Shown here is a 387-nucleotide RNA sequence from Haloechinothrix halophila, a member of the family "Bacterial RNase P class A".
RNA sequence: CGAGUUGGCGGGGCGGCCGCGAGCGGUGCUCGGCACCGCUCGAGGAAAGUCCGGACUCCACAGGGCAGGGUGGUUGCUAACAGCAACCCGGGGCGACCCGCGGGAAAGUGCCACAGAAAACAGACCGCCGCGGCGACGCGGUAAGGGUGAAACGGUGGUGUAAGAGACCACCAGCACCCCGGGUGACCGGGGUGGCUCGGUAAACCCCACCCGGAGCAAGGCCAAGAGGGCGCUGCACGCGCCUGCGCGAGCGAGAGGGCGGCCCGUCCUGCUCGCGGGUAGGCCGCUUGAGCCCGUCGGCGACGGCGGGCCUAGAUGGAUGGUCGCCGCCCGGCAUGCCGUGAGGCGUGCCGGGUACAGGAUCCGGCUUACACGCCAACUCGUCCG
Numbered sequence: 001c002g003a004g005u006u007g008g009c010g011g012g013g014c015g016g017c018c019g020c021g022a023g024c025g026g027u028g029c030u031c032g033g034c035a036c037c038g039c040u041c042g043a044g045g046a047a048a049g050u051c052c053g054g055a056c057u058c059c060a061c062a063g064g065g066c067a068g069g070g071u072g073g074u075u076g077c078u079a080a081c082a083g084c085a086a087c088c089c090g091g092g093g094c095g096a097c098c099c100g101c102g103g104g105a106a107a108g109u110g111c112c113a114c115a116g117a118a119a120a121c122a123g124a125c126c127g128c129c130g131c132g133g134c135g136a137c138g139c140g141g142u143a144a145g146g147g148u149g150a151a152a153c154g155g156u157g158g159u160g161u162a163a164g165a166g167a168c169c170a171c172c173a174g175c176a177c178c179c180c181g182g183g184u185g186a187c188c189g190g191g192g193u194g195g196c197u198c199g200g201u202a203a204a205c206c207c208c209a210c211c212c213g214g215a216g217c218a219a220g221g222c223c224a225a226g227a228g229g230g231c232g233c234u235g236c237a238c239g240c241g242c243c244u245g246c247g248c249g250a251g252c253g254a255g256a257g258g259g260c261g262g263c264c265c266g267u268c269c270u271g272c273u274c275g276c277g278g279g280u281a282g283g284c285c286g287c288u289u290g291a292g293c294c295c296g297u298c299g300g301c302g303a304c305g306g307c308g309g310g311c312c313u314a315g316a317u318g319g320a321u322g323g324u325c326g327c328c329g330c331c332c333g334g335c336a337u338g339c340c341g342u343g344a345g346g347c348g349u350g351c352c353g354g355g356u357a358c359a360g361g362a363u364c365c366g367g368c369u370u371a372c373a374c375g376c377c378a379a380c381u382c383g384u385c386c387g
Base pairs, nucleotide, nucleotide: 001383002382003381004380005379006378007377008376009375010374011372012328013327014326015325016324017323018322020042021041022040023039024038025037026036027035028034047370048369049368051367052366053365054364055363056216057215058214059213063265064264065263066262068212069211070210071209072208073087074086075085076084077083088102089100090099091098092097103207104206108205109204110201111200112199125146126145127142128141129140130139131138132137154172155171156170157169158168159167174196175194176193177192178191179190180189181188182187220285221284222283223282247276248275249274250273251272252271256270257269258268259267260266292311293310294309295308296307297306298305299304
Rfam classes the family as a ribozyme. Rfam's curators write: Ribonuclease P (RNase P) is a ubiquitous endoribonuclease, found in archaea, bacteria and eukarya as well as chloroplasts and mitochondria. The base pairs follow the family's consensus structure, which is taken from published work.